[Rfam]
RNA sequence: GCGAUGAGCUGAUUUGCAUAAGACGAAAAAUAAGGCAAUACAUGUGAAUGUGAACACAUGAUUUUUCGCCGCAAAUACAGAAAAGACGUCUAUACAUUUGUAUAGGCGUC
Number, nucleotide and partner (000 for none) at each position: 001g000002c000003g000004a000005u000006g000007a000008g000009c000010u000011g000012a000013u000014u074015u073016g072017c071018a000019u000020a000021a000022g000023a000024c068025g067026a066027a065028a064029a063030a062031u061032a000033a000034g000035g000036c000037a000038a000039u000040a000041c060042a059043u000044g057045u056046g055047a000048a000049u000050g000051u000052g000053a000054a000055c046056a045057c044058a000059u042060g041061a031062u030063u029064u028065u027066u026067c025068g024069c000070c000071g017072c016073a015074a014075a000076u000077a000078c000079a000080g000081a000082a000083a000084a000085g110086a109087c108088g107089u106090c105091u104092a103093u102094a000095c000096a000097u000098u000099u000100g000101u000102a093103u092104a091105g090106g089107c088108g087109u086110c085

Shown here is a 110-nucleotide RNA from Virgibacillus necropolis, a member of the family "BsrF". Taxonomically the source falls in Virgibacillus (Bacteria, Bacillati, Caryophanales, Bacillaceae).